This 84-nucleotide RNA sequence from Varanus komodoensis belongs to the Rfam family "Small nucleolar RNA U2-19". The organism belongs to Varanus, within Eukaryota. The match comes from Rfam's covariance-model search (65 bits). Pairs were carried over by alignment from the consensus structure, which is taken from published work.
[Rfam]
RNA sequence: GCUCUGUGAUGAGAAAUAGCCAAAUCUGAACACCAAAAAGAUCAGCUGAUCUAUAUGGUGCAUGAUUUGUACACUGUUCUGGGA
Numbered sequence: 001g002c003u004c005u006g007u008g009a010u011g012a013g014a015a016a017u018a019g020c021c022a023a024a025u026c027u028g029a030a031c032a033c034c035a036a037a038a039a040g041a042u043c044a045g046c047u048g049a050u051c052u053a054u055a056u057g058g059u060g061c062a063u064g065a066u067u068u069g070u071a072c073a074c075u076g077u078u079c080u081g082g083g084a
Stems, first nucleotide, its partner, number of pairs: 031060004039052004